Rfam assigns this 109-nucleotide RNA sequence from Hymenochirus boettgeri to the family "MIR4387 microRNA precursor family".
RNA sequence: GGCCAUUCUAUUGUCACACCUCCUAUUGGCCAUUCUAUUGUCACACCUCCUCAACAGGAGGUGUGACAAUAGAAUGGCCAACAGGAGGUGUGACAAUAGAAUGGCUAAU
Numbered sequence: 001g002g003c004c005a006u007u008c009u010a011u012u013g014u015c016a017c018a019c020c021u022c023c024u025a026u027u028g029g030c031c032a033u034u035c036u037a038u039u040g041u042c043a044c045a046c047c048u049c050c051u052c053a054a055c056a057g058g059a060g061g062u063g064u065g066a067c068a069a070u071a072g073a074a075u076g077g078c079c080a081a082c083a084g085g086a087g088g089u090g091u092g093a094c095a096a097u098a099g100a101a102u103g104g105c106u107a108a109u
Stems, first nucleotide, its partner, number of pairs: 003104019023084002026081008035072016
The source organism's lineage runs through Eukaryota, Bilateria, Euteleostomi, Tetrapoda and Hymenochirus. The match comes from Rfam's covariance-model search (85 bits). Clan: MIR4387 microRNA precursor clan. The family has 4 seed sequences and 24 matches in Rfam 15.1.